[Rfam]
RNA: Actinobacteria sRNA Ms_IGR-5
RNA sequence: ACGCCGAAAGGAGGUGAUCCGAGAAGUGAUUUCUUAUCGGACCAGCGAGGUGGCUGCGGGCUGACGCCCGUCGUCGCACCUGCCGACAGACCGUCGGCCGUAAUACCCAGCAGUCACCGACCCGCGGGUUCGCCGGUAUCGUCCGUCCGGCUCCUCUUCCCGGGAAGAGGAAACAGAACCCGCGGGUUUCUGCAU
Numbered sequence: 001a002c003g004c005c006g007a008a009a010g011g012a013g014g015u016g017a018u019c020c021g022a023g024a025a026g027u028g029a030u031u032u033c034u035u036a037u038c039g040g041a042c043c044a045g046c047g048a049g050g051u052g053g054c055u056g057c058g059g060g061c062u063g064a065c066g067c068c069c070g071u072c073g074u075c076g077c078a079c080c081u082g083c084c085g086a087c088a089g090a091c092c093g094u095c096g097g098c099c100g101u102a103a104u105a106c107c108c109a110g111c112a113g114u115c116a117c118c119g120a121c122c123c124g125c126g127g128g129u130u131c132g133c134c135g136g137u138a139u140c141g142u143c144c145g146u147c148c149g150g151c152u153c154c155u156c157u158u159c160c161c162g163g164g165a166a167g168a169g170g171a172a173a174c175a176g177a178a179c180c181c182g183c184g185g186g187u188u189u190c191u192g193c194a195u
Stems, first nucleotide, its partner, number of pairs: 014057003018053001059099007069089001070087003119188012132151005